The record is a 133-nucleotide sequence from Pontivivens ytuae, which matches "FMN riboswitch aptamer (RFN element)" in Rfam. The organism belongs to Pontivivens, within Bacteria. From the family's description: The RFN element is a highly conserved domain that is found frequently in the 5'-untranslated regions of prokaryotic mRNAs that encode for flavin mononucleotide (FMN) biosynthesis and transport proteins.
RNA sequence: CGACGUUCUCGGGGCGGGGUGCAAUUCCCCACCGGCGGUUAUAGCCCGCGAGCGCUCCUCCCUCGGGAGGAGGUCAGCAGAUCCGGUGAGAUUCCGGAGCCGACGGUAACAGUCCGGAUGUGAGAGAACGGGA
Numbered sequence: 001c002g003a004c005g006u007u008c009u010c011g012g013g014g015c016g017g018g019g020u021g022c023a024a025u026u027c028c029c030c031a032c033c034g035g036c037g038g039u040u041a042u043a044g045c046c047c048g049c050g051a052g053c054g055c056u057c058c059u060c061c062c063u064c065g066g067g068a069g070g071a072g073g074u075c076a077g078c079a080g081a082u083c084c085g086g087u088g089a090g091a092u093u094c095c096g097g098a099g100c101c102g103a104c105g106g107u108a109a110c111a112g113u114c115c116g117g118a119u120g121u122g123a124g125a126g127a128a129c130g131g132g133a
Stems, first nucleotide, its partner, number of pairs: 004130007017029003031113002033102002035049004044100002052078002082098005104116003
Pairs were carried over by alignment from the consensus structure, which is taken from published work.